Rfam assigns this 136-nucleotide RNA from Hazenella coriacea to the family "Ribosomal protein L20 leader". On this family, see Zengel and Lindahl, Prog Nucleic Acid Res Mol Biol 1994: "Diverse mechanisms for regulating ribosomal protein synthesis in Escherichia coli". The match comes from Rfam's covariance-model search (64 bits). The source organism's lineage runs through Bacteria, Bacillota, Caryophanales, Thermoactinomycetaceae and Hazenella. Pairs were carried over by alignment from the consensus structure, which was predicted with CMfinder.

RNA sequence: CAUUGAAAGCAGGAGCGCCCGCUUCUCACCUGAUUGACGCAAUGGGUUGUUGUCAGGUUACCAUGACCGGAUCAAGCAUAUCUAUUUGCUUAGGUUACGAAGUGUGGGCGCAAUGCGCUCACACUUUAUUUUUUUA
Numbered sequence: 001c002a003u004u005g006a007a008a009g010c011a012g013g014a015g016c017g018c019c020c021g022c023u024u025c026u027c028a029c030c031u032g033a034u035u036g037a038c039g040c041a042a043u044g045g046g047u048u049g050u051u052g053u054c055a056g057g058u059u060a061c062c063a064u065g066a067c068c069g070g071a072u073c074a075a076g077c078a079u080a081u082c083u084a085u086u087u088g089c090u091u092a093g094g095u096u097a098c099g100a101a102g103u104g105u106g107g108g109c110g111c112a113a114u115g116c117g118c119u120c121a122c123a124c125u126u127u128a129u130u131u132u133u134u135u136a
Stems, first nucleotide, its partner, number of pairs: 011026006028058003036051003039047002103123009